[Rfam]
Nucleotides: 102
Base pairs, nucleotide, nucleotide: 018088020086021085022084023083024082025081031047032046033045034044035043058078059077060076061075062074064072
Number, partner (000 for none) and nucleotide at each position: 001000u002000u003000c004000g005000u006000u007000g008000u009000u010000a011000a012000a013000a014000a015000a016000u017000c018088a019000a020086c021085u022084c023083g024082u025081a026000u027000a028000a029000a030000a031047g032046u033045g034044a035043g036000g037000a038000u039000a040000u041000g042000g043035c044034u045033c046032a047031c048000a049000a050000g051000u052000u053000u054000c055000u056000a057000c058078c059077a060076g061075g062074c063000u064072a065000c066000c067000u068000u069000a070000a071000a072064u073000u074062g075061c076060c077059u078058g079000a080000c081025u082024a083023c084022g085021g086020g087000a088018u089000g090000u091000a092000a093000a094000a095000a096000a097000u098000c099000a100000u101000c102000u